This 172-nucleotide RNA sequence from Aminipila luticellarii belongs to the Rfam family "Group II catalytic intron D1-D4-3". The pairing is the family consensus, mapped onto this sequence.
RNA sequence: UCCAUCGUGAGAUGGAAUCUGAAGGAAGCCAGCGGCAAAUCUCCGAUCUGACGAACAGAAAUCACAUUAGGCAAUAACUAAGGAUAAGACUGCGAUUCAAGUUGAAGUCCAAUAACUACUCGGAAUUAGAUAUUGUAAAUAUGGCAGAUAGAUGGAGAGAAAGAUUGCAAAC
Numbered sequence: 001u002c003c004a005u006c007g008u009g010a011g012a013u014g015g016a017a018u019c020u021g022a023a024g025g026a027a028g029c030c031a032g033c034g035g036c037a038a039a040u041c042u043c044c045g046a047u048c049u050g051a052c053g054a055a056c057a058g059a060a061a062u063c064a065c066a067u068u069a070g071g072c073a074a075u076a077a078c079u080a081a082g083g084a085u086a087a088g089a090c091u092g093c094g095a096u097u098c099a100a101g102u103u104g105a106a107g108u109c110c111a112a113u114a115a116c117u118a119c120u121c122g123g124a125a126u127u128a129g130a131u132a133u134u135g136u137a138a139a140u141a142u143g144g145c146a147g148a149u150a151g152a153u154g155g156a157g158a159g160a161a162a163g164a165u166u167g168c169a170a171a172c
Stems, first nucleotide, its partner, number of pairs: 001016006028172001032168001036163001040158006046149005062144003066140001071136003075132002078129004082110004088103004